[Rfam]
RNA sequence: GCCGGUCCUCGGUCGUGGCCGCCGGGACGAGCGCCGUCGGUGCCGCCCGGAGACUUCGACUGAGCACCGGC
Numbered sequence: 001g002c003c004g005g006u007c008c009u010c011g012g013u014c015g016u017g018g019c020c021g022c023c024g025g026g027a028c029g030a031g032c033g034c035c036g037u038c039g040g041u042g043c044c045g046c047c048c049g050g051a052g053a054c055u056u057c058g059a060c061u062g063a064g065c066a067c068c069g070g071c
Stems, first nucleotide, its partner, number of pairs: 001071006009063005017055002020052001022050005028045002

Shown here is a 71-nucleotide RNA sequence from Parafrankia sp. EAN1pec, a member of the family "Actino-pnp RNA".
Rfam's curators put it in the seed alignment.
Pairs were carried over by alignment from the consensus structure, which is taken from published work.
NCBI's taxonomy places the organism under Bacteria, Bacillati, Actinomycetota, Frankiales, Parafrankia.